[Rfam]
Source information:
The family of this 129-nucleotide sequence from Microbacterium sp. ABRD28 is "ALIL pseudoknot". By type it is a cis-regulatory element. NCBI's taxonomy places the organism under Bacteria, Bacillati, Actinomycetota, Micrococcales, Microbacterium. The match comes from Rfam's covariance-model search (62 bits).
RNA sequence: GUCGUUCUUCGCGCGGGAGCUCGACCCGCGACUGCCGUGGUAGUUCAGUUCAUCGACGAUCAUCGUGACCGGUUCGGGGUCGAGCCGAUCUGCCGGGUGCUCAGCGAGCAUGCCGUGCCGAUCGCUCCG
Numbered sequence: 001g002u003c004g005u006u007c008u009u010c011g012c013g014c015g016g017g018a019g020c021u022c023g024a025c026c027c028g029c030g031a032c033u034g035c036c037g038u039g040g041u042a043g044u045u046c047a048g049u050u051c052a053u054c055g056a057c058g059a060u061c062a063u064c065g066u067g068a069c070c071g072g073u074u075c076g077g078g079g080u081c082g083a084g085c086c087g088a089u090c091u092g093c094c095g096g097g098u099g100c101u102c103a104g105c106g107a108g109c110a111u112g113c114c115g116u117g118c119c120g121a122u123c124g125c126u127c128c129g
Stems, first nucleotide, its partner, number of pairs: 013029005075129005086124002089121002092118002